[Rfam]
This 82-nucleotide sequence from Sarcophilus harrisii belongs to the Rfam family "mir-199 microRNA precursor family".
This family consists of the microRNA (miRNA) precursor mir-199 which appears to be specific to humans. Animal miRNAs are transcribed as ~70nt precursors and subsequently processed by the Dicer enzyme to give a ~22nt product.
The organism belongs to Sarcophilus, within Eukaryota.
Gene Ontology terms of the family: RISC complex and miRNA-mediated post-transcriptional gene silencing.
It is one of the family's seed sequences.
RNA sequence: GCCCCACCAGCCCAGUGUUCAGACUACCUGUCCAGGAAAUUGCAAAUGUGUACAGUAGUCUGCACAUUGGUUAGGCUGGGCU
Numbered sequence: 001g002c003c004c005c006a007c008c009a010g011c012c013c014a015g016u017g018u019u020c021a022g023a024c025u026a027c028c029u030g031u032c033c034a035g036g037a038a039a040u041u042g043c044a045a046a047u048g049u050g051u052a053c054a055g056u057a058g059u060c061u062g063c064a065c066a067u068u069g070g071u072u073a074g075g076c077u078g079g080g081c082u
Base pairs, nucleotide, nucleotide: 012070013069014068015067016066017065018064020062021061022060023059024058025057026056028055029054030053031052033050034049